[Rfam]
RNA sequence: GUGGGCAUCGUCACUGUCCAGCCGCAGUCCGUUCCGGUCGUCGCCGAAUUGCCGGGCCGCACCAGUGCCUUCCUGGUCGCGCAAGUGCGCGCGCGGGUCGAUGGCAUCGUGCUGUGCCGCGAGUUCACGGAAGGCGAUGACGUCAAACAGGGCCAACGCCUCUACAAGAUCGA
Numbered sequence: 001g002u003g004g005g006c007a008u009c010g011u012c013a014c015u016g017u018c019c020a021g022c023c024g025c026a027g028u029c030c031g032u033u034c035c036g037g038u039c040g041u042c043g044c045c046g047a048a049u050u051g052c053c054g055g056g057c058c059g060c061a062c063c064a065g066u067g068c069c070u071u072c073c074u075g076g077u078c079g080c081g082c083a084a085g086u087g088c089g090c091g092c093g094c095g096g097g098u099c100g101a102u103g104g105c106a107u108c109g110u111g112c113u114g115u116g117c118c119g120c121g122a123g124u125u126c127a128c129g130g131a132a133g134g135c136g137a138u139g140a141c142g143u144c145a146a147a148c149a150g151g152g153c154c155a156a157c158g159c160c161u162c163u164a165c166a167a168g169a170u171c172g173a
Base pairs, nucleotide, nucleotide: 004053005052006051007050008047009046010045011043013041014040016038018037019036021034023031024030059143060142063139066136067135068134072133074131078093079092080091081090082089094121095120097118099116100115102114103113104112105111106110157172158171160168161167
Shown here is a 173-nucleotide RNA sequence from Candidatus Burkholderia verschuerenii, a member of the family "Burkholderia RNA 14". From the family's description: Co-purified with Hfq, expression confirmed by Northern blot. Putative functional homologue of PA-SraF. Overlaps coding sequence. A reference for the family is Ramos et al. (2013), "Experimental identification of small non-coding regulatory RNAs in the opportunistic human pathogen Burkholderia cenocepacia J2315", Genomics.